RNA sequence: UGGGGCUUCGGUGAUGGAUCCCACCUGAGCGAACGCUCGAACCGCCGCCCGGCUGAUGGCUCCUGCCAAUCG
Numbered sequence: 001u002g003g004g005g006c007u008u009c010g011g012u013g014a015u016g017g018a019u020c021c022c023a024c025c026u027g028a029g030c031g032a033a034c035g036c037u038c039g040a041a042c043c044g045c046c047g048c049c050c051g052g053c054u055g056a057u058g059g060c061u062c063c064u065g066c067c068a069a070u071c072g
Stems, first nucleotide, its partner, number of pairs: 010025004016063003020059002044053003
A member of the RNA family "Fluoride riboswitch aptamer (crcB RNA motif)" from Gordonia asplenii, 72 nucleotides long. The organism belongs to Gordonia, within Bacteria. Pairs were carried over by alignment from the consensus structure, which is taken from published work.